Notes:
Shown here is a 35-nucleotide sequence from Haloflavibacter putidus, a member of the family "S16-Flavobacteria ribosomal protein leader". The family's consensus secondary structure is taken from published work. Lineage of the source: Bacteria > Bacteroidota > Flavobacteriia > Flavobacteriales > Haloflavibacter.

RNA sequence: AUUAAUAAUCGGGGUCGAGCACCCUAAAAUUUAAU
Numbered sequence: 001a002u003u004a005a006u007a008a009u010c011g012g013g014g015u016c017g018a019g020c021a022c023c024c025u026a027a028a029a030u031u032u033a034a035u
Stems, first nucleotide, its partner, number of pairs: 001035005011025005